[Rfam]
RNA: RtT RNA
Organism: Chania multitudinisentens
RNA sequence: CUUUCUCUGCACAGGGGAAGGAUGAGAAGCUUCGACAAGGUUCGAGCCGAGCGCAGCGAGACAACGCGCUUUAGCGCGGCCCGCAGGGCGAGGAGCAACGCGACGAGUUAUCCUUCCCCCACCACCA
Dot-bracket structure: ..............(((((((.(.........((.(....(.((...((.......))......(((((....)))))...)).).).))...................).))))))).........